[Rfam]
This 194-nucleotide RNA from Streptomyces sp. BR123 belongs to the Rfam family "Streptomyces sRNA 4677". Located in the intergenic region between anti-sigma factor SCO4677 gene and a putative regulatory protein gene SCO4676. scr4677 expression requires the SCO4677 activity and scr4677 sRNA itself seem to affect the levels of the SCO4676-associated transcripts. The literature on the family includes a 2014 paper in PLoS One by Hindra et al., "Complex intra-operonic dynamics mediated by a small RNA in Streptomyces coelicolor". Rfam classes the family as a small RNA.
RNA sequence: UGACCCUGCGCGGGGCGCGCGAGGCGCGCGCGAGGCGCGUCGCCCGGACGGGUGAACUGUGCCAACCGGGCUGGAUUCGCCGCCCGUUGCCGGGCAUAUGCUCGGGCCGACAACAGCAGACAUGAGACGGCCCCCGGCGGGACGGCAAUCCCGGUCGAGGGCCUGACCAAGCAGGAAGUAAGCGACACUUCCCA
Numbered sequence: 001u002g003a004c005c006c007u008g009c010g011c012g013g014g015g016c017g018c019g020c021g022a023g024g025c026g027c028g029c030g031c032g033a034g035g036c037g038c039g040u041c042g043c044c045c046g047g048a049c050g051g052g053u054g055a056a057c058u059g060u061g062c063c064a065a066c067c068g069g070g071c072u073g074g075a076u077u078c079g080c081c082g083c084c085c086g087u088u089g090c091c092g093g094g095c096a097u098a099u100g101c102u103c104g105g106g107c108c109g110a111c112a113a114c115a116g117c118a119g120a121c122a123u124g125a126g127a128c129g130g131c132c133c134c135c136g137g138c139g140g141g142a143c144g145g146c147a148a149u150c151c152c153g154g155u156c157g158a159g160g161g162c163c164u165g166a167c168c169a170a171g172c173a174g175g176a177a178g179u180a181a182g183c184g185a186c187a188c189u190u191c192c193c194a
Stems, first nucleotide, its partner, number of pairs: 040055006071105004129163005135157002139152004174192005

Source information: NCBI's taxonomy places the organism under Bacteria, Bacillati, Actinomycetes, Streptomycetaceae, Streptomyces.